[Rfam]
RNA sequence: CGAUGAGGUAGAGGCUGCGCAGCAUAAGAGUAAUGCUACUGGAGGGUGACACCUAGGAUAGUAGAAGAAAGGAUGCUGUGCCGAAGCAGUGUGAGUGGUCGAACUCACGUUGCUGGGGUUAUCUUGAAUAAGGAUAACACUGCCAUUAUGACCGGUACGGACGGGUUUUAUAAUGGAGGGCUACUGAUCGG
Numbered sequence: 001c002g003a004u005g006a007g008g009u010a011g012a013g014g015c016u017g018c019g020c021a022g023c024a025u026a027a028g029a030g031u032a033a034u035g036c037u038a039c040u041g042g043a044g045g046g047u048g049a050c051a052c053c054u055a056g057g058a059u060a061g062u063a064g065a066a067g068a069a070a071g072g073a074u075g076c077u078g079u080g081c082c083g084a085a086g087c088a089g090u091g092u093g094a095g096u097g098g099u100c101g102a103a104c105u106c107a108c109g110u111u112g113c114u115g116g117g118g119u120u121a122u123c124u125u126g127a128a129u130a131a132g133g134a135u136a137a138c139a140c141u142g143c144c145a146u147u148a149u150g151a152c153c154g155g156u157a158c159g160g161a162c163g164g165g166u167u168u169u170a171u172a173a174u175g176g177a178g179g180g181c182u183a184c185u186g187a188u189c190g191g
Stems, first nucleotide, its partner, number of pairs: 007185005017081009034066001036064006085114012115141002118138008143176009
Source information:
Lysine riboswitch aptamer: a 191-nucleotide RNA sequence from Bacillus sp. THAF10. Rfam describes the family as follows. Riboswitches are metabolite binding domains within certain messenger RNAs that serve as precision sensors for their corresponding targets. Allosteric rearrangement of mRNA structure is mediated by ligand binding, and this results in modulation of gene expression. This family includes riboswitches that sense lysine in a number of genes involved in lysine metabolism, including lysC. On this family, see Sudarsan et al., Genes Dev 2003: "An mRNA structure in bacteria that controls gene expression by binding lysine". Taxonomically the source falls in Bacillus (Bacteria, Bacillati, Bacilli, Bacillaceae).